RNA: Plastid-clpP 5UTR RNA
Organism: Populus alba
RNA sequence: AAUUCUAUUUUUAGGAACAAAAAGAAGCAAAUCCAUUAUGUACCAUAUAAGUACCAAUAUGUAAUAAGG
Numbered sequence: 001a002a003u004u005c006u007a008u009u010u011u012u013a014g015g016a017a018c019a020a021a022a023a024g025a026a027g028c029a030a031a032u033c034c035a036u037u038a039u040g041u042a043c044c045a046u047a048u049a050a051g052u053a054c055c056a057a058u059a060u061g062u063a064a065u066a067a068g069g
Stems, first nucleotide, its partner, number of pairs: 003022002006019001008017003043068001051060003